[Rfam]
RNA: Ribosomal protein L10 leader
Organism: Lachnoclostridium sp. An118
RNA sequence: AAAUUACAGUAGUAACUGCCGAAGACAGCAGGUGCUGAAAAGCGUAAGUGUGAAAACGCCUGCCGAGGAAGAAUAGAUUUAGUACAUUGCGUAUGAAUUUCUACCCCUCUGUGACUUUGGACGCAGAGGGGAUUUUAAUUCGGCCA
Number, nucleotide and partner (000 for none) at each position: 001a000002a000003a000004u000005u000006a000007c000008a000009g000010u000011a000012g000013u000014a000015a000016c000017u000018g000019c000020c000021g000022a000023a000024g000025a000026c000027a000028g063029c062030a061031g060032g059033u058034g043035c042036u041037g000038a000039a000040a000041a036042g035043c034044g000045u000046a000047a000048g000049u000050g000051u000052g000053a000054a000055a000056a000057c000058g033059c032060c031061u030062g029063c028064c000065g000066a000067g000068g000069a000070a000071g000072a000073a000074u000075a000076g000077a000078u000079u000080u000081a000082g000083u000084a000085c000086a000087u000088u000089g000090c000091g000092u000093a000094u000095g000096a000097a000098u000099u000100u000101c000102u000103a000104c131105c130106c129107c128108u127109c126110u125111g124112u123113g122114a000115c000116u000117u000118u000119g000120g000121a000122c113123g112124c111125a110126g109127a108128g107129g106130g105131g104132a000133u000134u000135u000136u000137a000138a000139u000140u000141c000142g000143g000144c000145c000146a000